[Rfam]
RNA: MIR159 microRNA precursor family
Organism: Lactuca saligna
RNA sequence: GAUGGAUCAAGGGAGCUCCCUUCAGUCCAAGCACAGAGAAGAAAAGGAUUAAAUUUGUCUCCCGCAUCAUUCACACAUUCACAAUAGGUCAACCACAUGCUCUUUCUAUUGUGUUUGAAUGAAUGAGUCGGCAGCAAAUCCGUACCCUCUACCCACCUAUGAGUGGACUGAAGGAAGCUCCCUUUCACUUUGAU
Dot-bracket structure: ............(((((.((..(((((((......(......................((.(((...((((....(........................................)....))))...))).))......................)......)))))))..)).)))))..............